Shown here is a 128-nucleotide sequence, a member of the family "Bacteriophage Diversity-Generating Retroelement RNA". It is annotated as a small RNA. The sequence is in the family's curated seed alignment. The base pairs follow the family's consensus structure, which is taken from published work. A reference for the family is Handa et al. (2025), "RNA control of reverse transcription in a diversity-generating retroelement", Nature.
[Rfam]
RNA sequence: CUCUCAUAAUUAGUCAAGGCUUUUAUGGAGCGACCUUAGAAAUAUGGUCAGCUUGUUUGUCCUGCUUAGGCGAAUACAUUGAGAGGUCUGUAAAAGUUGGAGUAGCUUCUGCGAAAGAACAAGACAGC
Numbered sequence: 001c002u003c004u005c006a007u008a009a010u011u012a013g014u015c016a017a018g019g020c021u022u023u024u025a026u027g028g029a030g031c032g033a034c035c036u037u038a039g040a041a042a043u044a045u046g047g048u049c050a051g052c053u054u055g056u057u058u059g060u061c062c063u064g065c066u067u068a069g070g071c072g073a074a075u076a077c078a079u080u081g082a083g084a085g086g087u088c089u090g091u092a093a094a095a096g097u098u099g100g101a102g103u104a105g106c107u108u109c110u111g112c113g114a115a116a117g118a119a120c121a122a123g124a125c126a127g128c
Stems, first nucleotide, its partner, number of pairs: 001030002004028006013020002063072003086128001088127004096120003105112002